[Rfam]
RNA sequence: CUUCCCAUUUAUUUGCUGCUAUAGUCUUUUCAAUGGUAUGAACAGUUAUACGCAUGGGAUAAAACAACAUUAGACCAUUGUCAAUUGAGAUGGAGUAACCAUUUCAUCUCUUCUGCAUGCAUGGUCUAGACAUAU
Numbered sequence: 001c002u003u004c005c006c007a008u009u010u011a012u013u014u015g016c017u018g019c020u021a022u023a024g025u026c027u028u029u030u031c032a033a034u035g036g037u038a039u040g041a042a043c044a045g046u047u048a049u050a051c052g053c054a055u056g057g058g059a060u061a062a063a064a065c066a067a068c069a070u071u072a073g074a075c076c077a078u079u080g081u082c083a084a085u086u087g088a089g090a091u092g093g094a095g096u097a098a099c100c101a102u103u104u105c106a107u108c109u110c111u112u113c114u115g116c117a118u119g120c121a122u123g124g125u126c127u128a129g130a131c132a133u134a135u
Stems, first nucleotide, its partner, number of pairs: 003059006015046004020041001022038002025036002070129008079117003087110010

Shown here is a 135-nucleotide RNA from Pipistrellus kuhlii, a member of the family "Small nucleolar RNA SNORA20". Rfam links the family to the GO terms nucleolus and RNA processing. Rfam 15.1 lists 437 matches to the family in 157 species. The organism belongs to Pipistrellus, within Eukaryota. From the family's description: ACA20 is a member of the H/ACA class of snoRNA that guide the sites of modification of uridines to pseudouridines.